RNA sequence: UAAACAGGUAGAGGUGCGGCUGAGAUCAGUAACAAAAAGCAGGAUGACCAUUCCGUUUAUGUUUUGUGAAAGGCGAUGCUGCCGAAGGACAGUUUCCGGUAAAUUCUGUUCUGGUCAAUGGCUUAACAGGCUCUUGACUGUCAUCAUGCAUUUGAUGGAGAGCUAUCGACACG
Dot-bracket structure: ......(((((....(((((...(.......((((((.(....................).))))))......)...)))))...(((((((..(.......)..)))))))((((((.((((.....)))).)))))).((((((......))))))....)))))......
Rfam assigns this 173-nucleotide sequence from Ruminococcus sp. CAG:624 to the family "Lysine riboswitch aptamer". Rfam describes the family as follows. Riboswitches are metabolite binding domains within certain messenger RNAs that serve as precision sensors for their corresponding targets. The source organism's lineage runs through Bacteria, Bacillati, Eubacteriales, Oscillospiraceae and Ruminococcus.